[Rfam]
RNA sequence: GGGCCGUGAUGAAGAAAACUGUGCCGGAGUGAGUCAUCUUUUGUCUCGCGAUGAUGGCGCAAUCCUCUAAGAAGUUCUGAGCUC
Numbered sequence: 001g002g003g004c005c006g007u008g009a010u011g012a013a014g015a016a017a018a019c020u021g022u023g024c025c026g027g028a029g030u031g032a033g034u035c036a037u038c039u040u041u042u043g044u045c046u047c048g049c050g051a052u053g054a055u056g057g058c059g060c061a062a063u064c065c066u067c068u069a070a071g072a073a074g075u076u077c078u079g080a081g082c083u084c
Stems, first nucleotide, its partner, number of pairs: 001084004
A member of the RNA family "Small nucleolar RNA U61" from Lathyrus oleraceus, 84 nucleotides long. The family's consensus secondary structure was predicted with WAR. It is annotated as a C/D-box small nucleolar RNA. A reference for the family is Brown et al. (2003), "Plant snoRNA database", Nucleic Acids Res. Rfam links the family to the GO terms RNA processing and nucleolus. Clan: SNORD61 clan.